[Rfam]
RNA sequence: CCUCAACUGCAUCCUCGCGACUAAUGAAAAUACUAAGUGACUGACAUUUAUUUAUGCCAUACACAAAAUUGUGUGCUCAAUACUUUCAUUAGCCGCGCGAAUCUCUGCAACAGAAGGACCCAAAAAACUAACGUUCUAUCAUACUGCUAUUAAGCGCUGGAUCCUAGAAGAAAGGGGCCAUAUUCGGCCCCUUUCU
Numbered sequence: 001c002c003u004c005a006a007c008u009g010c011a012u013c014c015u016c017g018c019g020a021c022u023a024a025u026g027a028a029a030a031u032a033c034u035a036a037g038u039g040a041c042u043g044a045c046a047u048u049u050a051u052u053u054a055u056g057c058c059a060u061a062c063a064c065a066a067a068a069u070u071g072u073g074u075g076c077u078c079a080a081u082a083c084u085u086u087c088a089u090u091a092g093c094c095g096c097g098c099g100a101a102u103c104u105c106u107g108c109a110a111c112a113g114a115a116g117g118a119c120c121c122a123a124a125a126a127a128c129u130a131a132c133g134u135u136c137u138a139u140c141a142u143a144c145u146g147c148u149a150u151u152a153a154g155c156g157c158u159g160g161a162u163c164c165u166a167g168a169a170g171a172a173a174g175g176g177g178c179c180a181u182a183u184u185c186g187g188c189c190c191c192u193u194u195c196u
Stems, first nucleotide, its partner, number of pairs: 001116001003114002009108003016099004021092009123148001174191006

A member of the RNA family "SraG RNA" from Budvicia aquatica, 196 nucleotides long.
Lineage of the source: Bacteria > Pseudomonadati > Pseudomonadota > Enterobacterales > Budvicia.
From the family's description: This RNA was discovered in E. coli during a large scale screen. Evidence was found for specific cleavage of this RNA.
Gene Ontology terms of the family: mRNA binding and sRNA-mediated gene silencing.